RNA: Selenocysteine transfer RNA
RNA sequence: GGAGGCGAAUCCGGUCUGGUGACCGGCUCGGUCUUCAAAACCGCAGAGGCCCGGACCACCGGGCCUGGCGGGUUCGAUUCCCGUCCGCCUCC
Numbered sequence: 001g002g003a004g005g006c007g008a009a010u011c012c013g014g015u016c017u018g019g020u021g022a023c024c025g026g027c028u029c030g031g032u033c034u035u036c037a038a039a040a041c042c043g044c045a046g047a048g049g050c051c052c053g054g055a056c057c058a059c060c061g062g063g064c065c066u067g068g069c070g071g072g073u074u075c076g077a078u079u080c081c082c083g084u085c086c087g088c089c090u091c092c
Stems, first nucleotide, its partner, number of pairs: 001092007009084001011026006029043004047066005069083004